FMN riboswitch aptamer (RFN element): a 134-nucleotide RNA sequence from Levilactobacillus bambusae. The base pairs follow the family's consensus structure, which is taken from published work. It scores 114 bits against the family's covariance model. Taxonomically the source falls in Levilactobacillus (Bacteria, Bacillota, Bacilli, Lactobacillaceae).
RNA sequence: CCAUUUCUUCGGGGCAGGGUGAAACUCCCGACCGACGGUGAUUCGUUAACGCGACAGUCCGUGACCCGCAUUAUGCGGUGGAUGCAGUGAAAUUCUGCAACCGACAGUGAAAGUCUGGAUGGGAGAAGAAAUGA
Numbered sequence: 001c002c003a004u005u006u007c008u009u010c011g012g013g014g015c016a017g018g019g020u021g022a023a024a025c026u027c028c029c030g031a032c033c034g035a036c037g038g039u040g041a042u043u044c045g046u047u048a049a050c051g052c053g054a055c056a057g058u059c060c061g062u063g064a065c066c067c068g069c070a071u072u073a074u075g076c077g078g079u080g081g082a083u084g085c086a087g088u089g090a091a092a093u094u095c096u097g098c099a100a101c102c103g104a105c106a107g108u109g110a111a112a113g114u115c116u117g118g119a120u121g122g123g124a125g126a127a128g129a130a131a132u133g134a
Base pairs, nucleotide, nucleotide: 003132004131005130006129007128008127009126010125017029018028019027031114032113033103034102035062036061037060038059057101058100066078067077083099084098085097086096087095105117106116107115